RNA sequence: GUGACAGAAGAGAGUGAGCACACAUGGUGUCUUUUCUUGCAUAUAUGUUUCCAUGCUUGAAGCUAUGCGUGCUCACUGCUCUAUCUGUCAU
Number, nucleotide and partner (000 for none) at each position: 001g091002u090003g089004a088005c087006a086007g085008a084009a000010g081011a080012g079013a077014g076015u075016g074017a073018g072019c071020a070021c069022a000023c067024a066025u065026g000027g000028u000029g000030u000031c000032u000033u000034u000035u000036c000037u000038u000039g000040c000041a000042u000043a000044u000045a000046u000047g000048u000049u000050u000051c000052c000053a000054u000055g000056c000057u000058u000059g000060a000061a000062g000063c000064u000065a025066u024067g023068c000069g021070u020071g019072c018073u017074c016075a015076c014077u013078g000079c012080u011081c010082u000083a000084u008085c007086u006087g005088u004089c003090a002091u001
Rfam assigns this 91-nucleotide sequence from Actinidia chinensis to the family "mir-156 microRNA precursor family". A reference for the family is Reinhart et al. (2002), "MicroRNAs in plants", Genes Dev. Gene Ontology terms of the family: RISC complex and miRNA-mediated post-transcriptional gene silencing. About the family: This family represents the plant microRNA (miRNA) precursor mir-156. The source organism's lineage runs through Eukaryota, Magnoliopsida, eudicotyledons, Ericales and Actinidia chinensis.